A member of the RNA family "Alpha operon ribosome binding site" from Colwellia sp. C1TZA3, 110 nucleotides long. Taxonomically the source falls in Colwellia (Bacteria, Pseudomonadota, Alteromonadales, Colwelliaceae). A search with the family's covariance model found it, with a score of 84 bits. On this family, see Schlax et al., J Biol Chem 2001: "Translational repression of the Escherichia coli alpha operon mRNA: importance of an mRNA conformational switch and a ternary entrapment complex". The base pairs follow the family's consensus structure, which is taken from published work. From the family's description: The bacterial alpha operon ribosome binding site is surrounded by this complex pseudoknotted structure. Translation of the mRNA produces 4 ribosomal protein products, one of which (S4) acts as a translational repressor by binding to the nested pseudoknot region. The mechanism of repression is thought to involve a conformational switch in the pseudoknot region and ribosome entrapment. Rfam classes the family as a cis-regulatory element.
RNA sequence: AAGAAAUGCGGCCGGUUGAGUAUCCUAACGGGCUUUUCAACUGGUAAAUUUUAAUUUAAAAGUAGGAGAUGUGUUUAGUGGCCCGUAUCGCUGGCAUUAACAUCCCUGAU
Numbered sequence: 001a002a003g004a005a006a007u008g009c010g011g012c013c014g015g016u017u018g019a020g021u022a023u024c025c026u027a028a029c030g031g032g033c034u035u036u037u038c039a040a041c042u043g044g045u046a047a048a049u050u051u052u053a054a055u056u057u058a059a060a061a062g063u064a065g066g067a068g069a070u071g072u073g074u075u076u077a078g079u080g081g082c083c084c085g086u087a088u089c090g091c092u093g094g095c096a097u098u099a100a101c102a103u104c105c106c107u108g109a110u
Stems, first nucleotide, its partner, number of pairs: 004052003011045003024094002029085004037109003